[Rfam]
RNA sequence: GGGGCUGACCGGCUUUGACAGGAGAGUAGUCGGUAAGUAAGCAUGCCGAGCUUUUGUUGCAUUGGCUCGUAAAUAUCAGUGCCUCAGCCAUAAAUGGCAACACUUCUUUAAGAAUGGCCGCCUAAUCGGGACGAUUAGCCGCCAUUAAUCUCCCGCAACGUGCUUUCGCCCAAUAGGCGCAGCGGUCGAGGUUUCAUCAAAACAUUGGGAUAGUGCGCGCAGAUACCUCGAUGCGCGUGCGAAACUGACCGGGGGUAAGGAAACAGUUGGUUUGUGCGUUCCUGCCGUUUCACCAAAAUGAAUACGUUACUAAGCAUGUAGAAAGCUUAUUGGAGCUUUUUCUGGACGAGGGUUCGAAUCCCUCCAGCUCCACUU
Numbered sequence: 001g002g003g004g005c006u007g008a009c010c011g012g013c014u015u016u017g018a019c020a021g022g023a024g025a026g027u028a029g030u031c032g033g034u035a036a037g038u039a040a041g042c043a044u045g046c047c048g049a050g051c052u053u054u055u056g057u058u059g060c061a062u063u064g065g066c067u068c069g070u071a072a073a074u075a076u077c078a079g080u081g082c083c084u085c086a087g088c089c090a091u092a093a094a095u096g097g098c099a100a101c102a103c104u105u106c107u108u109u110a111a112g113a114a115u116g117g118c119c120g121c122c123u124a125a126u127c128g129g130g131a132c133g134a135u136u137a138g139c140c141g142c143c144a145u146u147a148a149u150c151u152c153c154c155g156c157a158a159c160g161u162g163c164u165u166u167c168g169c170c171c172a173a174u175a176g177g178c179g180c181a182g183c184g185g186u187c188g189a190g191g192u193u194u195c196a197u198c199a200a201a202a203c204a205u206u207g208g209g210a211u212a213g214u215g216c217g218c219g220c221a222g223a224u225a226c227c228u229c230g231a232u233g234c235g236c237g238u239g240c241g242a243a244a245c246u247g248a249c250c251g252g253g254g255g256u257a258a259g260g261a262a263a264c265a266g267u268u269g270g271u272u273u274g275u276g277c278g279u280u281c282c283u284g285c286c287g288u289u290u291c292a293c294c295a296a297a298a299u300g301a302a303u304a305c306g307u308u309a310c311u312a313a314g315c316a317u318g319u320a321g322a323a324a325g326c327u328u329a330u331u332g333g334a335g336c337u338u339u340u341u342c343u344g345g346a347c348g349a350g351g352g353u354u355c356g357a358a359u360c361c362c363u364c365c366a367g368c369u370c371c372a373c374u375u
Base pairs, nucleotide, nucleotide: 001371002370003369004368005367006366007365019344020343021342022341023340024339025338026337030333031332032331033330034329035328036327037326038325042318043317044316045315046314047069048068049067050066051065058081059080060079113146114145115144116143117142118141120139121138147193148192149191150190151189152188153185154184155183156182159179160178161177169209170208171207172206173205174204213240214239215238216237217236218235219234220233221232226254227253228252229251259293260291261290262289263288264287266285269282270281274310275309276308278305279304348364349363350362351361352360

Record summary
The record is a 375-nucleotide RNA sequence from Sphingobacteriales bacterium UPWRP_1, which matches "transfer-messenger RNA" in Rfam. It is annotated as a non-coding RNA gene. The family's consensus secondary structure is taken from published work. Bacterial tmRNA, also known as 10Sa RNA or SsrA, is named for its dual tRNA and mRNA-like properties. Its role is to liberate the mRNA from a stalled ribosome. To accomplish this part of the tmRNA is used as a reading frame that ends in a translation stop signal. The broken mRNA is replaced in the ribosome by the tmRNA and translation of the tmRNA leads to addition of a proteolysis tag to the incomplete protein enabling recognition by a protease. Recently a number of permuted tmRNA genes have been found encoded in two parts. tmRNAs have been identified in eubacteria and some chloroplasts but are absent from archaeal and eukaryote nuclear genomes.